[Rfam]
RNA sequence: GAUCAAGAUCGCGAACAUUCUCGUGGUAGGACCGCGCAUGGGCAGGGUGGCGUAGCCACCCGGCGAAAGCACCCAUGCGCGACACAAGGCUCCGGAAGGAGCCUUUUUUUAUGGCUAAAU
Numbered sequence: 001g002a003u004c005a006a007g008a009u010c011g012c013g014a015a016c017a018u019u020c021u022c023g024u025g026g027u028a029g030g031a032c033c034g035c036g037c038a039u040g041g042g043c044a045g046g047g048u049g050g051c052g053u054a055g056c057c058a059c060c061c062g063g064c065g066a067a068a069g070c071a072c073c074c075a076u077g078c079g080c081g082a083c084a085c086a087a088g089g090c091u092c093c094g095g096a097a098g099g100a101g102c103c104u105u106u107u108u109u110u111a112u113g114g115c116u117a118a119a120u
Stems, first nucleotide, its partner, number of pairs: 009026001029116002032113001033081010045061006063070002086105008

Rfam assigns this 120-nucleotide RNA sequence from Parahoeflea olei to the family "Rhizobiales sRNA Atu_C8". On this family, see Wilms et al., RNA Biol 2012: "Deep sequencing uncovers numerous small RNAs on all four replicons of the plant pathogen Agrobacterium tumefaciens". By type it is a small RNA.